[Rfam]
RNA sequence: AGGCCCGAAGAGAGAAGCAGGGUCUGAUCCACAGCCUCCGUGGCAGCUGUUGAUUAGUCAUUGCCUCUCUCUUUUUCAUUG
Numbered sequence: 001a002g003g004c005c006c007g008a009a010g011a012g013a014g015a016a017g018c019a020g021g022g023u024c025u026g027a028u029c030c031a032c033a034g035c036c037u038c039c040g041u042g043g044c045a046g047c048u049g050u051u052g053a054u055u056a057g058u059c060a061u062u063g064c065c066u067c068u069c070u071c072u073u074u075u076u077c078a079u080u081g
Base pairs, nucleotide, nucleotide: 008073009072010071011070012069013068014067015066017064018063019062020061022059024057025056026055027054028053029052032049033048034047035046

Background
This 81-nucleotide RNA sequence from Cnephaeus nilssonii belongs to the Rfam family "mir-574 microRNA precursor family". Taxonomically the source falls in Cnephaeus (Eukaryota, Gnathostomata, Boreoeutheria, Yangochiroptera). Clan: mir-574 microRNA precursor clan.